[Rfam]
RNA sequence: CCACAGCAUCAAGAGUCGGACCGACGUUCGACACCAACCUGCUCCCGAGCAAGGUGGUGCCUCCAGAAAGGAGGGAUGUGGCCGGACCGGCAAUAAACGGGACCUUC
Numbered sequence: 001c002c003a004c005a006g007c008a009u010c011a012a013g014a015g016u017c018g019g020a021c022c023g024a025c026g027u028u029c030g031a032c033a034c035c036a037a038c039c040u041g042c043u044c045c046c047g048a049g050c051a052a053g054g055u056g057g058u059g060c061c062u063c064c065a066g067a068a069a070g071g072a073g074g075g076a077u078g079u080g081g082c083c084g085g086a087c088c089g090g091c092a093a094u095a096a097a098c099g100g101g102a103c104c105u106u107c
Stems, first nucleotide, its partner, number of pairs: 006079005015032001017030005033058003038054003041050003081091004